[Rfam]
RNA: DUF805b RNA
RNA sequence: AAAGCGGAAGCCGAAAAGCUAAUGAGUAGGCU
Numbered sequence: 001a002a003a004g005c006g007g008a009a010g011c012c013g014a015a016a017a018g019c020u021a022a023u024g025a026g027u028a029g030g031c032u
Stems, first nucleotide, its partner, number of pairs: 003020003010031003
Dot-bracket structure: ..(((....[[[.....)))........]]].